[Rfam]
tRNA: a 73-nucleotide RNA sequence from Treponema rectale.
The match comes from Rfam's covariance-model search (63 bits).
Rfam describes the family as follows. Transfer RNA (tRNA) molecules are approximately 80 nucleotides in length.
The source organism's lineage runs through Bacteria, Pseudomonadati, Spirochaetota, Treponemataceae and Treponema.
It is annotated as a transfer RNA.
RNA sequence: GGGCUAUUAGCUCAGGUGGUAGAGCACCGCCCUUUUAAGGCGGCUGUCUGCAGUUCGAGUCUGCAAUAGCUCA
Numbered sequence: 001g002g003g004c005u006a007u008u009a010g011c012u013c014a015g016g017u018g019g020u021a022g023a024g025c026a027c028c029g030c031c032c033u034u035u036u037a038a039g040g041c042g043g044c045u046g047u048c049u050g051c052a053g054u055u056c057g058a059g060u061c062u063g064c065a066a067u068a069g070c071u072c073a
Base pairs, nucleotide, nucleotide: 001072002071003070004069005068006067007066010025011024012023013022027043028042029041030040031039049065050064051063052062053061